[Rfam]
RNA sequence: GGUCAUGAGUGCCAGCGCGUAGCCCCGGCUUGCUGGCCGGCAACCCUCCGGUUCGUGGGUGGGGUGCCCCGGGUGAGGACCAGGCUCGGCACAUGGGUGUCGGGCAAGCCGCGUCG
Numbered sequence: 001g002g003u004c005a006u007g008a009g010u011g012c013c014a015g016c017g018c019g020u021a022g023c024c025c026c027g028g029c030u031u032g033c034u035g036g037c038c039g040g041c042a043a044c045c046c047u048c049c050g051g052u053u054c055g056u057g058g059g060u061g062g063g064g065u066g067c068c069c070c071g072g073g074u075g076a077g078g079a080c081c082a083g084g085c086u087c088g089g090c091a092c093a094u095g096g097g098u099g100u101c102g103g104g105c106a107a108g109c110c111g112c113g114u115c116g
Base pairs, nucleotide, nucleotide: 001081002080003079004078009038011037012036013035014034015033016032021030022029039068040067041066044064045063046062048059049058084105085104086103087102088101089100090099091098092097

Annotation: Shown here is a 116-nucleotide RNA from Kribbella caucasensis, a member of the family "SAM (S-adenosyl methionine) riboswitch aptamer". NCBI's taxonomy places the organism under Bacteria, Actinomycetota, Actinomycetes, Propionibacteriales, Kribbella. Clan: SAM clan. Gene Ontology terms of the family: regulation of gene expression and S-adenosylmethionine metabolic process.